[Rfam]
RNA sequence: GUGAAGUUGAUCACAAGCAAACAUAUACCCCUUUGUUUGACCGUGAAAAAUUUCUCCCAUCCCCUUUGUUCGAAAGAAAAGCCCUCAUCAUUGAUGAGGGCUUUUCU
Numbered sequence: 001g002u003g004a005a006g007u008u009g010a011u012c013a014c015a016a017g018c019a020a021a022c023a024u025a026u027a028c029c030c031c032u033u034u035g036u037u038u039g040a041c042c043g044u045g046a047a048a049a050a051u052u053u054c055u056c057c058c059a060u061c062c063c064c065u066u067u068g069u070u071c072g073a074a075a076g077a078a079a080a081g082c083c084c085u086c087a088u089c090a091u092u093g094a095u096g097a098g099g100g101c102u103u104u105u106c107u
Base pairs, nucleotide, nucleotide: 003054004053005052006051007050008049011046012045013044014043018039019038020037021036022035023034070074078104079103080102081101082100083099084098085097086096087095088094
A member of the RNA family "RNA Staph. aureus E (RoxS)" from Jeotgalibacillus campisalis, 107 nucleotides long. The literature on the family includes a 2009 paper in Nucleic Acids Res by Geissmann et al., "A search for small noncoding RNAs in Staphylococcus aureus reveals a conserved sequence motif for regulation". The source organism's lineage runs through Bacteria, Bacillati, Bacilli, Caryophanaceae and Jeotgalibacillus. It scores 103 bits against the family's covariance model. Rfam describes the family as follows. It was shown to be regulated by the presence of nitric oxide (NO). In Bacillus subtilis it controls expression of genes with functions related to oxidative stress and oxidation-reduction reactions and it was renamed RoxS (for related to oxidative stress). Gene Ontology term of the family: regulation of translational initiation.